[Rfam]
RNA sequence: GGCUAUGUAGCUCAGUUGGUUAGAGCACAUCACUCAUAAUGAUGGGGUCCCCUGUUCGAAUCAGGGCAUAGCCA
Dot-bracket structure: (((((((..((((.........)))).(((((.......))))).....(((((.......)))))))))))).
The record is a 74-nucleotide sequence from Dichelobacter nodosus, which matches "tRNA" in Rfam.
It scores 72 bits against the family's covariance model.